[Rfam]
RNA sequence: UGUAUUUUCAAUUCCGUAGUGCAUUUGCAGUGUAUGACAAUGAAAGCAACUGCAAGCACGGCGGAAGUGAAGAUAACUU
Numbered sequence: 001u002g003u004a005u006u007u008u009c010a011a012u013u014c015c016g017u018a019g020u021g022c023a024u025u026u027g028c029a030g031u032g033u034a035u036g037a038c039a040a041u042g043a044a045a046g047c048a049a050c051u052g053c054a055a056g057c058a059c060g061g062c063g064g065a066a067g068u069g070a071a072g073a074u075a076a077c078u079u
Base pairs, nucleotide, nucleotide: 006072007071008070009069010068013065014064015063016062017061020058021057022056025055026054027053028052029051
RNA: mir-932 microRNA precursor family
Organism: Polypedilum vanderplanki